[Rfam]
RNA sequence: CCUCUUGUGUUAAGGUGCAUCUAGUGCAGUCAGUGACAUAGCUUAGAAUCUACUGCCCUAAAUGCUCCUUUUGGCACAAGUG
Numbered sequence: 001c002c003u004c005u006u007g008u009g010u011u012a013a014g015g016u017g018c019a020u021c022u023a024g025u026g027c028a029g030u031c032a033g034u035g036a037c038a039u040a041g042c043u044u045a046g047a048a049u050c051u052a053c054u055g056c057c058c059u060a061a062a063u064g065c066u067c068c069u070u071u072u073g074g075c076a077c078a079a080g081u082g
Base pairs, nucleotide, nucleotide: 004080005079006078007077009075010074011073013069014068015067017065018064019063020062022060023059024058026056027055029054032051033050
Source information
The record is an 82-nucleotide RNA sequence from Leptobrachium leishanense, which matches "mir-17 microRNA precursor family" in Rfam. This family represents the microRNA (miRNA) precursor mir-17, family, which includes mir-20, mir-91, and mir-103. miRNAs are transcribed as ~70nt precursors (modelled here) and subsequently processed by the Dicer enzyme to give a ~22nt product. In this case the mature sequence comes from the 3' arm of the precursor. The extents of the hairpin precursors are not generally known and are estimated based on hairpin prediction. It scores 52 bits against the family's covariance model. NCBI's taxonomy places the organism under Eukaryota, Vertebrata, Sarcopterygii, Megophryidae, Leptobrachium.